[Rfam]
RNA: Purine riboswitch aptamer
RNA sequence: UUCAAUAUCAUAAAGAAUCUUCAUAUAUACUCGAAAAUAUGGUUCGAGAGUCUCUACCGGGUUGCCGUAAAAAACCUGACUAUGAAGACAGAACCGAGCAUC
Dot-bracket structure: .................((((((((....((((((.......)))))).........((((((.........))))))..))))))))..............
Numbered sequence: 001u002u003c004a005a006u007a008u009c010a011u012a013a014a015g016a017a018u019c020u021u022c023a024u025a026u027a028u029a030c031u032c033g034a035a036a037a038u039a040u041g042g043u044u045c046g047a048g049a050g051u052c053u054c055u056a057c058c059g060g061g062u063u064g065c066c067g068u069a070a071a072a073a074a075c076c077u078g079a080c081u082a083u084g085a086a087g088a089c090a091g092a093a094c095c096g097a098g099c100a101u102c
Stems, first nucleotide, its partner, number of pairs: 018088008030048006058078006